[Rfam]
RNA sequence: CUGCUCACAAAGUGGCUGUUGUAUGCAGAUUUUCGAGUCAUAUCACAGCCAGCUUUGAUGAGCGACG
Numbered sequence: 001c002u003g004c005u006c007a008c009a010a011a012g013u014g015g016c017u018g019u020u021g022u023a024u025g026c027a028g029a030u031u032u033u034c035g036a037g038u039c040a041u042a043u044c045a046c047a048g049c050c051a052g053c054u055u056u057g058a059u060g061a062g063c064g065a066c067g
Stems, first nucleotide, its partner, number of pairs: 005061003008057005013051007020042003